This 98-nucleotide sequence from Penicillium canariense belongs to the Rfam family "A. fumigatus snoRNA Afu_263". Its family is annotated with RNA processing and nucleolus in the Gene Ontology. The match comes from Rfam's covariance-model search (79 bits). Clan: SNORD77 clan. The source organism's lineage runs through Eukaryota, Ascomycota, saccharomyceta, leotiomyceta and Penicillium.
RNA sequence: UCUUUGGAUGAUGAACAAAUCUACCAAAAGCAUAGUUCAACUGAAAUCUUCGGAUUGCUGAACGAAAACCUUGAUCCAUCUUUCAACCUUGUCUGAUC
Numbered sequence: 001u002c003u004u005u006g007g008a009u010g011a012u013g014a015a016c017a018a019a020u021c022u023a024c025c026a027a028a029a030g031c032a033u034a035g036u037u038c039a040a041c042u043g044a045a046a047u048c049u050u051c052g053g054a055u056u057g058c059u060g061a062a063c064g065a066a067a068a069c070c071u072u073g074a075u076c077c078a079u080c081u082u083u084c085a086a087c088c089u090u091g092u093c094u095g096a097u098c
Base pairs, nucleotide, nucleotide: 006022007021008020009017010016035063036062037061038060039059045056046055047054048053